[Rfam]
RNA sequence: CUUUAAAUGUGGAUGUAGGGUCUGAAAAACUCAUAUAGUUAAGUGCUGUCAUCAGCUUCUUCACUUGUACCAAACAUGUUUGGAGUCAAAUAAAAGCACUACAUUU
Dot-bracket structure: .........................................((((((.......(((((..(...............)...)))))........))))))......
Numbered sequence: 001c002u003u004u005a006a007a008u009g010u011g012g013a014u015g016u017a018g019g020g021u022c023u024g025a026a027a028a029a030c031u032c033a034u035a036u037a038g039u040u041a042a043g044u045g046c047u048g049u050c051a052u053c054a055g056c057u058u059c060u061u062c063a064c065u066u067g068u069a070c071c072a073a074a075c076a077u078g079u080u081u082g083g084a085g086u087c088a089a090a091u092a093a094a095a096g097c098a099c100u101a102c103a104u105u106u
Stems, first nucleotide, its partner, number of pairs: 042100006055086005062078001

The record is a 106-nucleotide RNA sequence from Nicotiana attenuata, which matches "Small nucleolar RNA snoR97" in Rfam. Pairs were carried over by alignment from the consensus structure, which was predicted with WAR. The organism belongs to Nicotiana, within Eukaryota. A reference for the family is Marker et al. (2002), "Experimental RNomics: identification of 140 candidates for small non-messenger RNAs in the plant Arabidopsis thaliana", Curr Biol. A search with the family's covariance model found it, with a score of 72 bits.